RNA sequence: AAAUAAAUAACUGAACACCGUCGUAUAAUUUUGGGAAUCGGCCCAUGAGUUUCUACCGGACCACCGUAAAUGGUCUGACUACGAGGUGAUUGCAUAGGUUU
Numbered sequence: 001a002a003a004u005a006a007a008u009a010a011c012u013g014a015a016c017a018c019c020g021u022c023g024u025a026u027a028a029u030u031u032u033g034g035g036a037a038u039c040g041g042c043c044c045a046u047g048a049g050u051u052u053c054u055a056c057c058g059g060a061c062c063a064c065c066g067u068a069a070a071u072g073g074u075c076u077g078a079c080u081a082c083g084a085g086g087u088g089a090u091u092g093c094a095u096a097g098g099u100u101u
Stems, first nucleotide, its partner, number of pairs: 019086001021084005029048002032045004057077007
RNA: Purine riboswitch aptamer